RNA sequence: AUGACGAUUGUGGGAGAGUGCGAGUAAUGAGCCACCGAAGGAGCAAGUUCCAAAAAAGACCCUUGGAACUAAUCUCUCAGGUAGAAGAACCACAAUGGGACG
Numbered sequence: 001a002u003g004a005c006g007a008u009u010g011u012g013g014g015a016g017a018g019u020g021c022g023a024g025u026a027a028u029g030a031g032c033c034a035c036c037g038a039a040g041g042a043g044c045a046a047g048u049u050c051c052a053a054a055a056a057a058g059a060c061c062c063u064u065g066g067a068a069c070u071a072a073u074c075u076c077u078c079a080g081g082u083a084g085a086a087g088a089a090c091c092a093c094a095a096u097g098g099g100a101c102g
Base pairs, nucleotide, nucleotide: 007096008095009094010093011092012091013090020032021031034082035081036080037078038077041076042075043074047069048068049067050066051065052064053063

This 102-nucleotide RNA from Bacillus sp. FJAT-27231 belongs to the Rfam family "Glycine riboswitch aptamer". Rfam's curators write: This family represents the bacterial glycine riboswitch. It scores 60 bits against the family's covariance model. The organism belongs to Bacillus, within Bacteria.